[Rfam]
A member of the RNA family "Nucleoid-associated noncoding RNA 4 (CssrE)" from Escherichia coli, 77 nucleotides long. Rfam links the family to the GO terms bacterial nucleoid, protein binding and bacterial nucleoid DNA packaging. For this family Rfam cites "A New Noncoding RNA Arranges Bacterial Chromosome Organization" (Qian et al., MBio, 2015). In E. coli small RNA transcribed from repeated extragenic palindromic element (REP325) called nucleoid-associated ncRNA 4 (nRNA4) collaborates HU protein in condensing the DNA. The secondary structure but not the sequence of the RNA is important in nucleoid condensation. Also identified in Shigella as CssrE. The family has 3 seed sequences and 870 matches in Rfam 15.1. The source organism's lineage runs through Bacteria, Gammaproteobacteria, Enterobacterales, Enterobacteriaceae and Escherichia coli O157:H7. It scores 74 bits against the family's covariance model.
RNA sequence: GGACGGAUAAGGCGUUUACGCCGCAUCCGGCAAUCGGUGCAAAUGCCAGAUAAGACACUAACGCGUCUUAUCUGGCC
Numbered sequence: 001g002g003a004c005g006g007a008u009a010a011g012g013c014g015u016u017u018a019c020g021c022c023g024c025a026u027c028c029g030g031c032a033a034u035c036g037g038u039g040c041a042a043a044u045g046c047c048a049g050a051u052a053a054g055a056c057a058c059u060a061a062c063g064c065g066u067c068u069u070a071u072c073u074g075g076c077c
Stems, first nucleotide, its partner, number of pairs: 002031001004029005011022004045076008054067003058063001
Annotation:
The family's consensus secondary structure is taken from published work.